RNA sequence: UGACCUUGGAAAUCAAGAAUGGGUGAAGCCUGUUGAAUUAAUUCUAGGCGACCCAUACUUGGUUUCAAGGGUCG
Numbered sequence: 001u002g003a004c005c006u007u008g009g010a011a012a013u014c015a016a017g018a019a020u021g022g023g024u025g026a027a028g029c030c031u032g033u034u035g036a037a038u039u040a041a042u043u044c045u046a047g048g049c050g051a052c053c054c055a056u057a058c059u060u061g062g063u064u065u066c067a068a069g070g071g072u073c074g
Stems, first nucleotide, its partner, number of pairs: 002073006009066006016059002021054004028049004
Rfam assigns this 74-nucleotide RNA from Pelusios castaneus to the family "mir-551 microRNA precursor family". The family's consensus secondary structure was predicted with RNAalifold. The match comes from Rfam's covariance-model search (85 bits).